[Rfam]
RNA sequence: CUAAUGUGGAUACACCCAGGAGGUCACUCUCUCCCCAGGCUGUGUCCAAGUGGCAUAGGGGAGCACAGGGCUCUGUCCCCAGGAUAUACAGUCCCUUUCCAUGACAUUGGAGAUGAAGCUGGGCCUCAACUAUUGGAGAUGAAGCUGGGCCUCAACUCUGCACCAGCAUAUUCCUACAACUUCUCAGAGUCCUGCGGAUAAUGACGGAGGAGACAUACCAUGCAGGAAACUGCC
Numbered sequence: 001c002u003a004a005u006g007u008g009g010a011u012a013c014a015c016c017c018a019g020g021a022g023g024u025c026a027c028u029c030u031c032u033c034c035c036c037a038g039g040c041u042g043u044g045u046c047c048a049a050g051u052g053g054c055a056u057a058g059g060g061g062a063g064c065a066c067a068g069g070g071c072u073c074u075g076u077c078c079c080c081a082g083g084a085u086a087u088a089c090a091g092u093c094c095c096u097u098u099c100c101a102u103g104a105c106a107u108u109g110g111a112g113a114u115g116a117a118g119c120u121g122g123g124c125c126u127c128a129a130c131u132a133u134u135g136g137a138g139a140u141g142a143a144g145c146u147g148g149g150c151c152u153c154a155a156c157u158c159u160g161c162a163c164c165a166g167c168a169u170a171u172u173c174c175u176a177c178a179a180c181u182u183c184u185c186a187g188a189g190u191c192c193u194g195c196g197g198a199u200a201a202u203g204a205c206g207g208a209g210g211a212g213a214c215a216u217a218c219c220a221u222g223c224a225g226g227a228a229a230c231u232g233c234c
Stems, first nucleotide, its partner, number of pairs: 001110007008047005015039002019030004050102004059095004063089001065087001067085001069080001163226002166223004180212006189199004

Overview
This 234-nucleotide RNA sequence from Macaca mulatta belongs to the Rfam family "Small nucleolar RNA SNORA73 family". From the family's description: U17 (SNORA73A and SNORA73B) also known as E1 belongs to the H/ACA class of small nucleolar RNAs (snoRNAs). Vertebrate U17 is intron-encoded and ranges in length from 200-230 nucleotides, longer than most snoRNAs. It is one of the most abundant snoRNAs in human cells and is essential for the cleavage of pre-rRNA within the 5' external transcribed spacer (ETS). It is annotated as an H/ACA-box small nucleolar RNA. Its Rfam clan is "snR30-U17 clan". The match comes from Rfam's covariance-model search (142 bits).